[Rfam]
RNA sequence: CCGACCGAAAAAUGUCGAAGCAUUACCUCUUCUGAGGUAGUCCGUGGGGUAGAGCGACCGAUUGGGGGCCCCGACUCCGAGAGGAGUCGGACCUCCUGUCGAACUCCGAACUCACGGACGCCGUGGACGAAGGGAGUCCGCUGCGCGGGGUAAGCUUGCGUAGCGUGAGGGAGACAACCCAGAGCUGGGUUAAGGUCCCCAAGUAUGGACUAAGUGCGAUCGAAGGUGGUCCCAAGCCCUAGACAGCCGGGAGGUGAGCUUAGAAGCAGCUACCCUCUAAGAAAAGCGUAACAGCUUACCGGCCGAGGUUUGGGGCGCCCAAAAUGAUCGGGGCUCAAGUCCAUCACCGAGACCUAGCCGCACGUGUCAGAGCGUGCUCGCGUAGGUCGGCACUCCGGUUGGGUGGAAGCACGGGCGAGAGCUCGCGUGGACCGACCGGUGAGGAAAAU
Numbered sequence: 001c002c003g004a005c006c007g008a009a010a011a012a013u014g015u016c017g018a019a020g021c022a023u024u025a026c027c028u029c030u031u032c033u034g035a036g037g038u039a040g041u042c043c044g045u046g047g048g049g050u051a052g053a054g055c056g057a058c059c060g061a062u063u064g065g066g067g068g069c070c071c072c073g074a075c076u077c078c079g080a081g082a083g084g085a086g087u088c089g090g091a092c093c094u095c096c097u098g099u100c101g102a103a104c105u106c107c108g109a110a111c112u113c114a115c116g117g118a119c120g121c122c123g124u125g126g127a128c129g130a131a132g133g134g135a136g137u138c139c140g141c142u143g144c145g146c147g148g149g150g151u152a153a154g155c156u157u158g159c160g161u162a163g164c165g166u167g168a169g170g171g172a173g174a175c176a177a178c179c180c181a182g183a184g185c186u187g188g189g190u191u192a193a194g195g196u197c198c199c200c201a202a203g204u205a206u207g208g209a210c211u212a213a214g215u216g217c218g219a220u221c222g223a224a225g226g227u228g229g230u231c232c233c234a235a236g237c238c239c240u241a242g243a244c245a246g247c248c249g250g251g252a253g254g255u256g257a258g259c260u261u262a263g264a265a266g267c268a269g270c271u272a273c274c275c276u277c278u279a280a281g282a283a284a285a286g287c288g289u290a291a292c293a294g295c296u297u298a299c300c301g302g303c304c305g306a307g308g309u310u311u312g313g314g315g316c317g318c319c320c321a322a323a324a325u326g327a328u329c330g331g332g333g334c335u336c337a338a339g340u341c342c343a344u345c346a347c348c349g350a351g352a353c354c355u356a357g358c359c360g361c362a363c364g365u366g367u368c369a370g371a372g373c374g375u376g377c378u379c380g381c382g383u384a385g386g387u388c389g390g391c392a393c394u395c396c397g398g399u400u401g402g403g404u405g406g407a408a409g410c411a412c413g414g415g416c417g418a419g420a421g422c423u424c425g426c427g428u429g430g431a432c433c434g435a436c437c438g439g440u441g442a443g444g445a446a447a448a449u
Base pairs, nucleotide, nucleotide: 001390002389003388004387005386006385011024012023013022014021015020026136027134028133029132030131031130032129036122037121038120040119041118042117043116044115045114046113047112052107053105054104060100061099062098064096065095066094067093068092073088074087075086076085077084078083140164141163142162143161144160145159146158147157148156169180170179171178184358185357186356187355188354189353190352194348195347196346203345205344206343207342208341209340210339225319226318227317229316230315231314232313233312234311235310236309237308238307246303247302248301249300250299252276253275254274257271258270259269277281282297286295287294359380360379361376362375363374364373365372391444393441395439396438397437398436399435400434401433402432409428410427412425413424414423415422416421
Shown here is a 449-nucleotide part of an RNA from Haloglomus irregulare, a member of the family "Archaeal large subunit ribosomal RNA". Pairs were carried over by alignment from the consensus structure, which is taken from published work. Clan: LSU clan.